The family of this 108-nucleotide sequence is "6S-Flavo RNA". It is one of the family's seed sequences. By type it is a small RNA.
RNA sequence: ACUCAACGAGUUAUUAAUUAAGAGUGGUGAGUUUCAAUUGUAAAAGCAAGCUGUCUUGAACAGAUCCUUGAUCAGUUGUGAAGCCACAAACCUGAUUUUUAGGAGUUU
Numbered sequence: 001a002c003u004c005a006a007c008g009a010g011u012u013a014u015u016a017a018u019u020a021a022g023a024g025u026g027g028u029g030a031g032u033u034u035c036a037a038u039u040g041u042a043a044a045a046g047c048a049a050g051c052u053g054u055c056u057u058g059a060a061c062a063g064a065u066c067c068u069u070g071a072u073c074a075g076u077u078g079u080g081a082a083g084c085c086a087c088a089a090a091c092c093u094g095a096u097u098u099u100u101a102g103g104a105g106u107u108u
Base pairs, nucleotide, nucleotide: 024087025086026085027084028083035078036077037076038075039074044069045068046067051063052062053061054060